Shown here is a 98-nucleotide RNA sequence from Phocoena sinus, a member of the family "mir-544 microRNA precursor family".
[Rfam]
RNA sequence: AUCACCUGGGGAUCUUAUUAAAAUGCAGAGUCUGAUGCAGUAGGUCUGGGGUGGGACCCAAGACUCUGCAUUUCUAAGAAGCUCCCAGGUGAUGCUCA
Numbered sequence: 001a002u003c004a005c006c007u008g009g010g011g012a013u014c015u016u017a018u019u020a021a022a023a024u025g026c027a028g029a030g031u032c033u034g035a036u037g038c039a040g041u042a043g044g045u046c047u048g049g050g051g052u053g054g055g056a057c058c059c060a061a062g063a064c065u066c067u068g069c070a071u072u073u074c075u076a077a078g079a080a081g082c083u084c085c086c087a088g089g090u091g092a093u094g095c096u097c098a
Stems, first nucleotide, its partner, number of pairs: 003091003009085003014081003018077003021073003025069005031063003
Taxonomically the source falls in Phocoena (Eukaryota, Metazoa, Amniota, Artiodactyla).